[Rfam]
RNA: Enterobacterial sRNA STnc180
Organism: Trabulsiella odontotermitis
RNA sequence: UAUUUUUAUGCACAUCAGCAAUAUACGUUCUGCCUGAAAUGGCAGGACCGCUGAAUAAAUACAGAAAUGGUAGUAAUAUUAUGAAUCAACAUAGCGAGAUGAAAUACUGGUCGUGGAUCGGUGCUUUCACGCUAUCGGUCCUGUUCUGGGGCCAGAUGGCCUGGAUGCUGAUCAACUAAUCCACCAAAACACUCCGUAAAAACCCGGUGUCGCAACCGGGUUUUGUUUUUCC
Numbered sequence: 001u002a003u004u005u006u007u008a009u010g011c012a013c014a015u016c017a018g019c020a021a022u023a024u025a026c027g028u029u030c031u032g033c034c035u036g037a038a039a040u041g042g043c044a045g046g047a048c049c050g051c052u053g054a055a056u057a058a059a060u061a062c063a064g065a066a067a068u069g070g071u072a073g074u075a076a077u078a079u080u081a082u083g084a085a086u087c088a089a090c091a092u093a094g095c096g097a098g099a100u101g102a103a104a105u106a107c108u109g110g111u112c113g114u115g116g117a118u119c120g121g122u123g124c125u126u127u128c129a130c131g132c133u134a135u136c137g138g139u140c141c142u143g144u145u146c147u148g149g150g151g152c153c154a155g156a157u158g159g160c161c162u163g164g165a166u167g168c169u170g171a172u173c174a175a176c177u178a179a180u181c182c183a184c185c186a187a188a189a190c191a192c193u194c195c196g197u198a199a200a201a202a203c204c205c206g207g208u209g210u211c212g213c214a215a216c217c218g219g220g221u222u223u224u225g226u227u228u229u230u231c232c
Base pairs, nucleotide, nucleotide: 010074011073012071013070019064030045031044032043033042034041111150112149115141117139118138119137120136121135122134123133153167154166157163187222188221203220204219205218206217207216208215